[Rfam]
RNA sequence: CACGGCGGCUGGCGCACUUCCUGAUAACGGGCAGUGUUUCGCGUCUGCAUAAGACAAACAGAUACCUUGCCCGCCAUUGCGCGGGCUUUUUUUU
Dot-bracket structure: .........(((.(((((.((((....)))).))))).)))...........................(((((((...).))))))........
Shown here is a 94-nucleotide RNA sequence from [Enterobacter] lignolyticus, a member of the family "Tryptophan operon leader".
Lineage of the source: Bacteria > Pseudomonadota > Gammaproteobacteria > Pluralibacter > [Enterobacter] lignolyticus.
For this family Rfam cites "Attenuation in amino acid biosynthetic operons" (Kolter and Yanofsky, Annu Rev Genet, 1982).
From the family's description: At least 6 amino acid operons are known to be regulated by attenuation.
A search with the family's covariance model found it, with a score of 58 bits.
Gene Ontology terms of the family: tryptophan biosynthetic process and transcriptional attenuation by ribosome.